[Rfam]
RNA sequence: GGCUUUCUUCGCGGCGGAGCUCGACCGCCCACAGCGGUGAUCGUCACCUACAUCGACGAGCACAAGGACGAUUUCGGAGUCGAGCCGAUCUGUGAGCAGCUGCAGGUCGCUCCG
Numbered sequence: 001g002g003c004u005u006u007c008u009u010c011g012c013g014g015c016g017g018a019g020c021u022c023g024a025c026c027g028c029c030c031a032c033a034g035c036g037g038u039g040a041u042c043g044u045c046a047c048c049u050a051c052a053u054c055g056a057c058g059a060g061c062a063c064a065a066g067g068a069c070g071a072u073u074u075c076g077g078a079g080u081c082g083a084g085c086c087g088a089u090c091u092g093u094g095a096g097c098a099g100c101u102g103c104a105g106g107u108c109g110c111u112c113c114g
Stems, first nucleotide, its partner, number of pairs: 013029005075114005086109002089106006

Shown here is a 114-nucleotide RNA sequence from Xylanimonas allomyrinae, a member of the family "ALIL pseudoknot". By type it is a cis-regulatory element. On this family, see Mazauric et al., J Biol Chem 2008: "Apical loop-internal loop RNA pseudoknots: a new type of stimulator of -1 translational frameshifting in bacteria".